This 80-nucleotide RNA from Triplophysa tibetana belongs to the Rfam family "Small nucleolar RNA SNORD103/SNORD85". NCBI's taxonomy places the organism under Eukaryota, Opisthokonta, Teleostomi, Neopterygii, Triplophysa. Rfam 15.1 lists 1,349 matches to the family in 595 species. For this family Rfam cites "RNomics: an experimental approach that identifies 201 candidates for novel, small, non-messenger RNAs in mouse" (Huttenhofer et al., EMBO J, 2001). The match comes from Rfam's covariance-model search (49 bits). Rfam links the family to the GO terms RNA processing and nucleolus. By type it is a C/D-box small nucleolar RNA.

RNA sequence: GUUGGCUAUGAUGACCAGAACUUGCCCUAUCUGAGAGAGCAUCUCUGUUAUGAGAAAGUUUAUAUUUGAUCUGAGCCACU
Numbered sequence: 001g002u003u004g005g006c007u008a009u010g011a012u013g014a015c016c017a018g019a020a021c022u023u024g025c026c027c028u029a030u031c032u033g034a035g036a037g038a039g040c041a042u043c044u045c046u047g048u049u050a051u052g053a054g055a056a057a058g059u060u061u062a063u064a065u066u067u068g069a070u071c072u073g074a075g076c077c078a079c080u
Stems, first nucleotide, its partner, number of pairs: 001080001003078004